Overview:
This 95-nucleotide sequence from Coccomyxa subellipsoidea belongs to the Rfam family "Small nucleolar RNA Z43". The literature on the family includes a 2003 paper in Nucleic Acids Res by Chen et al., "The high diversity of snoRNAs in plants: identification and comparative study of 120 snoRNA genes from Oryza sativa". The match comes from Rfam's covariance-model search (43 bits). The family's RNA type in Rfam is C/D-box small nucleolar RNA. The family's consensus secondary structure was predicted with PFOLD.
RNA sequence: GAGCGAUGAUGAUUGUCUCGUUCGUCGGAAUGGCGAGAUCCACCAAGUCUCACAGAAGCCUUGACGACAAUUGUCACCACCCAUAACCUGAGCUC
Numbered sequence: 001g002a003g004c005g006a007u008g009a010u011g012a013u014u015g016u017c018u019c020g021u022u023c024g025u026c027g028g029a030a031u032g033g034c035g036a037g038a039u040c041c042a043c044c045a046a047g048u049c050u051c052a053c054a055g056a057a058g059c060c061u062u063g064a065c066g067a068c069a070a071u072u073g074u075c076a077c078c079a080c081c082c083a084u085a086a087c088c089u090g091a092g093c094u095c
Stems, first nucleotide, its partner, number of pairs: 001095004035062002